nrdJ RNA: an 84-nucleotide sequence from Streptomyces spinoverrucosus.

[Rfam]
RNA sequence: ACCUGUUGCGGGCGGCAGCGAGAGGGUCCCGCAACACAAGACACAACACCGUGCCACGGGAACAUCGUGGCACUUCAGGGCGUU
Numbered sequence: 001a002c003c004u005g006u007u008g009c010g011g012g013c014g015g016c017a018g019c020g021a022g023a024g025g026g027u028c029c030c031g032c033a034a035c036a037c038a039a040g041a042c043a044c045a046a047c048a049c050c051g052u053g054c055c056a057c058g059g060g061a062a063c064a065u066c067g068u069g070g071c072a073c074u075u076c077a078g079g080g081c082g083u084u
Stems, first nucleotide, its partner, number of pairs: 004036009016024001051073008